RNA: Group I catalytic intron
RNA sequence: CAGAAUGGGUUAACUUUUAGCCCGGUUGUAAGGAAACUUGCAGCAUAAAAUAGGACGUGAAUUCGGGGAAAGCUAAGUUUGCAUAAAAAAGUUUAAUUUUAUGCAAAUAUGCCAAUCCCGAGCCAAGCCUUGCAGGAAUGCGAGGAAGGUGUAGAGACUAGGUCAUACCAUCCAGACCGGAUGAUGGAGACCCACGAGUGCGUUCCGCCCUAACGUUUAGUCGAGGGUGAAGAUAUAGUCCGAUACUCCAAGGAAACUUGGAG
Number, nucleotide and partner (000 for none) at each position: 001c000002a000003g000004a000005a000006u024007g023008g022009g021010u020011u019012a018013a017014c000015u000016u000017u013018u012019a011020g010021c009022c008023c007024g006025g000026u000027u000028g000029u040030a039031a038032g000033g000034a000035a000036a000037c000038u031039u030040g029041c000042a000043g000044c000045a000046u000047a000048a000049a000050a000051u000052a000053g205054g204055a203056c202057g000058u200059g199060a000061a000062u000063u121064c120065g119066g118067g117068g116069a000070a000071a000072g112073c111074u000075a000076a108077g000078u000079u000080u000081g000082c000083a000084u000085a000086a000087a000088a000089a000090a000091g000092u000093u000094u000095a000096a000097u000098u000099u000100u000101a000102u000103g000104c000105a000106a000107a000108u076109a000110u000111g073112c072113c000114a000115a000116u068117c067118c066119c065120g064121a063122g150123c149124c000125a000126a000127g000128c144129c000130u142131u000132g000133c000134a000135g000136g000137a000138a000139u000140g000141c000142g130143a000144g128145g000146a000147a000148g000149g123150u122151g000152u000153a000154g241155a000156g240157a239158c238159u237160a236161g000162g000163u000164c000165a000166u000167a000168c000169c000170a000171u000172c000173c000174a000175g000176a000177c000178c000179g000180g000181a000182u000183g000184a000185u000186g000187g000188a000189g000190a000191c000192c000193c000194a000195c000196g000197a000198g000199u059200g058201c000202g056203u055204u054205c053206c000207g000208c227209c226210c225211u224212a000213a000214c000215g000216u000217u000218u000219a000220g000221u000222c000223g000224a211225g210226g209227g208228u000229g000230a000231a000232g000233a000234u000235a000236u160237a159238g158239u157240c156241c154242g000243a000244u000245a000246c000247u000248c261249c260250a259251a258252g257253g000254a000255a000256a000257c252258u251259u250260g249261g248262a000263g000